[Rfam]
RNA sequence: GUAAUGUUUCUUGCUCAAAUGAGUAUUCCAACCACAGCUAGGACCAAGAACCAGGACAGAACAGUUUGGUCGUGGUUGGUUUUUAGCAGCCCAACUGUUUUGCUCUCUCUCUCUGAUGCUGCUGUUCUGAGAUGCUCAUUUGAGCAAGCAAUGUUAU
Numbered sequence: 001g002u003a004a005u006g007u008u009u010c011u012u013g014c015u016c017a018a019a020u021g022a023g024u025a026u027u028c029c030a031a032c033c034a035c036a037g038c039u040a041g042g043a044c045c046a047a048g049a050a051c052c053a054g055g056a057c058a059g060a061a062c063a064g065u066u067u068g069g070u071c072g073u074g075g076u077u078g079g080u081u082u083u084u085a086g087c088a089g090c091c092c093a094a095c096u097g098u099u100u101u102g103c104u105c106u107c108u109c110u111c112u113c114u115g116a117u118g119c120u121g122c123u124g125u126u127c128u129g130a131g132a133u134g135c136u137c138a139u140u141u142g143a144g145c146a147a148g149c150a151a152u153g154u155u156a157u
Stems, first nucleotide, its partner, number of pairs: 004154005010148018029129002
A member of the RNA family "MIR828 microRNA precursor family" from Corymbia citriodora, 157 nucleotides long.